[Rfam]
RNA sequence: AACCAGGGACGACCCUGAUCCCCUUUACCAUAAGCAGGGUAACCAGGGACGACCCUG
Dot-bracket structure: .(.(((((....))))).)........................(((((....)))))
RNA: Guanidine-II riboswitch aptamer (mini-ykkC)
Organism: Salvelinus namaycush